[Rfam]
A member of the RNA family "U7 small nuclear RNA" from Prolemur simus, 61 nucleotides long.
Rfam describes the family as follows. Animal histone pre-mRNAs are spliced by a different mechanism than nuclear pre-mRNAs and self-splicing introns. This processing involves the U7 snRNP, which contains only one RNA species: U7. The 5' end of U7 RNA is thought to base-pair to a conserved spacer element downstream of the cleavage site in histone pre-mRNA. This family contains a number of annotated U7 pseudogenes.
The family's consensus secondary structure was predicted with PFOLD.
RNA sequence: AAGCAUUACAGCUCUUUUAGAAUUUGUCUACUAGGUUUUUUGGUUUUUAGAAGAUACCCCU
Numbered sequence: 001a002a003g004c005a006u007u008a009c010a011g012c013u014c015u016u017u018u019a020g021a022a023u024u025u026g027u028c029u030a031c032u033a034g035g036u037u038u039u040u041u042g043g044u045u046u047u048u049a050g051a052a053g054a055u056a057c058c059c060c061u
Stems, first nucleotide, its partner, number of pairs: 034058003037054005